[Rfam]
RNA sequence: AAGAAAGUGACUGCCGCCCCGCACAGGGGCAACGCUAAUAAACCGACGCGAAAGCAAGUUUCACUCACACCUUCGAAGCCUCAAAAAGCCCCCGCGCCGCCCGCGAUAAAAGC
Numbered sequence: 001a002a003g004a005a006a007g008u009g010a011c012u013g014c015c016g017c018c019c020c021g022c023a024c025a026g027g028g029g030c031a032a033c034g035c036u037a038a039u040a041a042a043c044c045g046a047c048g049c050g051a052a053a054g055c056a057a058g059u060u061u062c063a064c065u066c067a068c069a070c071c072u073u074c075g076a077a078g079c080c081u082c083a084a085a086a087a088g089c090c091c092c093c094g095c096g097c098c099g100c101c102c103g104c105g106a107u108a109a110a111a112g113c
Base pairs, nucleotide, nucleotide: 011078012077014075016030017029018028019027020026058068059067095105096104097103
Record summary
A member of the RNA family "Burkholderia sRNA Bp1_Cand684_SIPHT" from Caballeronia novacaledonica, 113 nucleotides long. The family's consensus secondary structure was predicted with RNAalifold. Lineage of the source: Bacteria > Pseudomonadati > Betaproteobacteria > Burkholderiales > Caballeronia. By type it is a small RNA.